[Rfam]
RNA sequence: ACUCAGGCACGAUCGUUAGCAAUAGUGCUAAAGAAGCGACCUGAAGUUCAAUCCUGAGGGA
Numbered sequence: 001a002c003u004c005a006g007g008c009a010c011g012a013u014c015g016u017u018a019g020c021a022a023u024a025g026u027g028c029u030a031a032a033g034a035a036g037c038g039a040c041c042u043g044a045a046g047u048u049c050a051a052u053c054c055u056g057a058g059g060g061a
Base pairs, nucleotide, nucleotide: 001047002046003045004043005042006041007040013034014033016031017030018029019028020027021026
The record is a 61-nucleotide RNA from Corynebacterium kutscheri, which matches "L31-Corynebacteriaceae ribosomal protein leader" in Rfam.
For this family Rfam cites "Discovery of 20 novel ribosomal leader candidates in bacteria and archaea" (Eckert and Weinberg, BMC Microbiol, 2020).
The family is grouped with related families in Rfam's "Ribosomal Protein L31 Leader clan".